[Rfam]
RNA: eL15-Euryarchaeota ribosomal protein leader
RNA sequence: CGGGAUCCGUCCCGUUCAGGAAUGUGGUGCAUCGCAGAUGCGCCGAACCUCAAG
Numbered sequence: 001c002g003g004g005a006u007c008c009g010u011c012c013c014g015u016u017c018a019g020g021a022a023u024g025u026g027g028u029g030c031a032u033c034g035c036a037g038a039u040g041c042g043c044c045g046a047a048c049c050u051c052a053a054g
Stems, first nucleotide, its partner, number of pairs: 001014005018050003026044008